[Rfam]
Shown here is a 135-nucleotide sequence from Novibacillus thermophilus, a member of the family "Ribosomal protein L10 leader". Its family is annotated with regulation of gene expression in the Gene Ontology. This family is a putative r-protein leader autoregulatory structure found in B. subtilis and other low-GC Gram-positive bacteria. The organism belongs to Novibacillus, within Bacteria. A reference for the family is Iben and Draper (2008), "Specific interactions of the L10(L12)4 ribosomal protein complex with mRNA, rRNA, and L11", Biochemistry. It scores 52 bits against the family's covariance model.

RNA sequence: CCCCAUAUACCGUCAAUGCCGUAGACUGCAGGGGCGCUAAGCUUAAACCUCUACCCUGCCGAGGCGUGUGGAGCAGUUUGAACGUUUGCUUUCUGCAGCCUCCGUAUGUCUUACGGAGGCUUUUCAUAUGCCGUG
Numbered sequence: 001c002c003c004c005a006u007a008u009a010c011c012g013u014c015a016a017u018g019c020c021g022u023a024g025a026c027u028g029c030a031g032g033g034g035c036g037c038u039a040a041g042c043u044u045a046a047a048c049c050u051c052u053a054c055c056c057u058g059c060c061g062a063g064g065c066g067u068g069u070g071g072a073g074c075a076g077u078u079u080g081a082a083c084g085u086u087u088g089c090u091u092u093c094u095g096c097a098g099c100c101u102c103c104g105u106a107u108g109u110c111u112u113a114c115g116g117a118g119g120c121u122u123u124u125c126a127u128a129u130g131c132c133g134u135g
Base pairs, nucleotide, nucleotide: 028059029058030057031056032055033054034042035041098120099119100118101117102116103115104114105113106112